[Rfam]
RNA sequence: AGGCUUGUAGAGAGAGGCAGAGUCUGAUCUGCAGCCUCCUGGAAGCUGUUGAUCAGCUGUUGCCUCUCUCUUUCUCUCCA
Dot-bracket structure: ........((((((((((((.(.((((((..((((.........))))..)))))).).)))))))))))).........
mir-574 microRNA precursor family: an 80-nucleotide RNA sequence from Cnephaeus nilssonii. Clan: mir-574 microRNA precursor clan. Rfam 15.1 lists 4,084 matches to the family in 7 species. It scores 92 bits against the family's covariance model.